[Rfam]
RNA sequence: CUGGUCAUCUAUCUGGUUGUGAAAUGUUGAUAUUCAGUACUCAUAUCACAGCCACUUUGAUGAGCUAGU
Dot-bracket structure: ....(((((.(..(((((((((..(((...............))))))))))))..).)))))......
Numbered sequence: 001c002u003g004g005u006c007a008u009c010u011a012u013c014u015g016g017u018u019g020u021g022a023a024a025u026g027u028u029g030a031u032a033u034u035c036a037g038u039a040c041u042c043a044u045a046u047c048a049c050a051g052c053c054a055c056u057u058u059g060a061u062g063a064g065c066u067a068g069u
Stems, first nucleotide, its partner, number of pairs: 005063005011057001014054009025045003
Shown here is a 69-nucleotide RNA sequence from Zootermopsis nevadensis, a member of the family "mir-2 microRNA precursor family". The family's consensus secondary structure was predicted with PFOLD. It scores 52 bits against the family's covariance model. NCBI's taxonomy places the organism under Eukaryota, Protostomia, Dicondylia, Pterygota, Zootermopsis.